[Rfam]
RNA sequence: GCGUCACAUCGCCAAACCUCUCGUGAGAGUGGGACGGAAAGCCAAGGGUCUCUAUGAGACAGCCUGGUUGCACUG
Numbered sequence: 001g002c003g004u005c006a007c008a009u010c011g012c013c014a015a016a017c018c019u020c021u022c023g024u025g026a027g028a029g030u031g032g033g034a035c036g037g038a039a040a041g042c043c044a045a046g047g048g049u050c051u052c053u054a055u056g057a058g059a060c061a062g063c064c065u066g067g068u069u070g071c072a073c074u075g
Base pairs, nucleotide, nucleotide: 012037013036017032018031020029021028022027040069041068042067043066045065046064047063048060049059050058052056
RNA: c-di-GMP-I riboswitch aptamer
Organism: Saccharospirillum salsuginis